Shown here is a 90-nucleotide sequence from Anoxybacillus gonensis, a member of the family "RT-9 RNA". The sequence is in the family's curated seed alignment.

RNA sequence: GAUUAGAACGGCUACGGCUUUUCUAACAGGCUUUGAAACUUCAAGGGAGCUGUAAUCCUUCGCUCGAAGAGCGUAAACACAUGAAUAGUC
Numbered sequence: 001g002a003u004u005a006g007a008a009c010g011g012c013u014a015c016g017g018c019u020u021u022u023c024u025a026a027c028a029g030g031c032u033u034u035g036a037a038a039c040u041u042c043a044a045g046g047g048a049g050c051u052g053u054a055a056u057c058c059u060u061c062g063c064u065c066g067a068a069g070a071g072c073g074u075a076a077a078c079a080c081a082u083g084a085a086u087a088g089u090c
Stems, first nucleotide, its partner, number of pairs: 003026006010019003061073004